[Rfam]
RNA sequence: CUAUGGUCUGAGAAAUGGCUAUGGCAAAGGAG
Numbered sequence: 001c002u003a004u005g006g007u008c009u010g011a012g013a014a015a016u017g018g019c020u021a022u023g024g025c026a027a028a029g030g031a032g
Stems, first nucleotide, its partner, number of pairs: 001024008
L31-Firmicutes ribosomal protein leader: a 32-nucleotide RNA sequence. By type it is a cis-regulatory leader. Pairs were carried over by alignment from the consensus structure, which is taken from published work. A reference for the family is Eckert and Weinberg (2020), "Discovery of 20 novel ribosomal leader candidates in bacteria and archaea", BMC Microbiol.